A member of the RNA family "Ribosomal S15 leader" from Pseudomonas panipatensis, 122 nucleotides long. The match comes from Rfam's covariance-model search (48 bits). For this family Rfam cites "Pseudoknot and translational control in the expression of the S15 ribosomal protein" (Benard et al., Biochimie, 1996). Lineage of the source: Bacteria > Pseudomonadota > Gammaproteobacteria > Pseudomonadaceae > Pseudomonas. Gene Ontology term of the family: regulation of translation, ncRNA-mediated.

RNA sequence: GGUCACUCCUCUUUUAUGAACACAGGGAGAAGUCCCUGGCCUGUUACCUCAGAGGAAGCCCCAUCAUGGCACUGAGCGUCGAAGAAAAAGCCCAGAUCGUUAACGAGUACAAGCAAGCUGAA
Numbered sequence: 001g002g003u004c005a006c007u008c009c010u011c012u013u014u015u016a017u018g019a020a021c022a023c024a025g026g027g028a029g030a031a032g033u034c035c036c037u038g039g040c041c042u043g044u045u046a047c048c049u050c051a052g053a054g055g056a057a058g059c060c061c062c063a064u065c066a067u068g069g070c071a072c073u074g075a076g077c078g079u080c081g082a083a084g085a086a087a088a089a090g091c092c093c094a095g096a097u098c099g100u101u102a103a104c105g106a107g108u109a110c111a112a113g114c115a116a117g118c119u120g121a122a
Stems, first nucleotide, its partner, number of pairs: 007029001009027004048076005054070001